[Rfam]
This 148-nucleotide sequence from Kitasatospora viridis belongs to the Rfam family "c-di-AMP riboswitch aptamer (ydaO/yuaA leader)". A search with the family's covariance model found it, with a score of 58 bits. Rfam describes the family as follows. This family represents a conserved RNA structure found upstream of the ydaO and yuaA genes in Bacillus subtilis and related genes in other bacteria. The ydaO/yuaA element is thought to act as a genetic 'off' switch for the ydaO and yuaA genes in its native state. It is believed that the element may be triggered during osmotic shock leading to activation of ydaO, a predicted amino acid transporter gene, and members of the yuaA-yubG operon which code for KtrA and KtrB K+ transporters. Taxonomically the source falls in Kitasatospora (Bacteria, Bacillati, Actinomycetota, Kitasatosporales).
RNA sequence: GGUGCGAAAACGCAACCAGGGCAGGAGCGGGGGAACCAGGUAAGCCGCCCCGGGAGACCGGGGCUAGGGGUGAAGCCGCGCACAGCGCGGCCGGGCAACUCCAGCCCGAAUCCGACAGCUCACCUCGUAGGCGUAGGAGAGGAACGCU
Number, nucleotide and partner (000 for none) at each position: 001g000002g000003u026004g000005c024006g000007a000008a000009a000010a000011c000012g000013c000014a000015a000016c000017c000018a000019g000020g000021g000022c000023a000024g005025g000026a003027g128028c127029g126030g125031g124032g123033g000034a000035a000036c000037c067038a000039g000040g000041u000042a000043a000044g000045c000046c000047g000048c000049c000050c000051c000052g000053g000054g000055a000056g000057a000058c000059c000060g000061g000062g000063g000064c000065u000066a000067g037068g113069g112070g111071u000072g000073a000074a000075g000076c090077c089078g088079c087080g000081c000082a000083c000084a000085g000086c000087g079088c078089g077090g076091c000092c000093g107094g106095g105096c104097a000098a000099c000100u000101c000102c000103a000104g096105c095106c094107c093108g000109a000110a000111u070112c069113c068114g000115a000116c000117a000118g000119c000120u000121c000122a000123c032124c031125u030126c029127g028128u027129a000130g000131g000132c000133g000134u000135a000136g000137g000138a000139g000140a000141g000142g000143a000144a000145c000146g000147c000148u000